[Rfam]
RNA sequence: CAGGGCCGCUGAAUUAGAGAUCGGCGCCCUUUAUUUCUUUUAAUUUUGGAGUUGAAAAUGUCUCUAAGCGUUGAAGCUAAAGCGAAAAUCGUUUCCGAGUUCGGUCGUGGUACU
Numbered sequence: 001c002a003g004g005g006c007c008g009c010u011g012a013a014u015u016a017g018a019g020a021u022c023g024g025c026g027c028c029c030u031u032u033a034u035u036u037c038u039u040u041u042a043a044u045u046u047u048g049g050a051g052u053u054g055a056a057a058a059u060g061u062c063u064c065u066a067a068g069c070g071u072u073g074a075a076g077c078u079a080a081a082g083c084g085a086a087a088a089u090c091g092u093u094u095c096c097g098a099g100u101u102c103g104g105u106c107g108u109g110g111u112a113c114u
Base pairs, nucleotide, nucleotide: 007026008025009024010023011022012021045068046067047066048065049064050063051062
Ribosomal S15 leader: a 114-nucleotide sequence from [Enterobacter] lignolyticus. Rfam links the family to the GO term regulation of translation, ncRNA-mediated. NCBI's taxonomy places the organism under Bacteria, Pseudomonadota, Gammaproteobacteria, Enterobacteriaceae, [Enterobacter] lignolyticus. About the family: The E. coli Ribosomal S15 gene 5' UTR can form two alternative structures. One that is a series of three hairpins, The other includes a pseudoknot. This structure causes translational regulation of the S15 protein. The alignment of this family contains only the final two hairpins which are conserved in other species, and also includes the complete region that forms the alternate structures.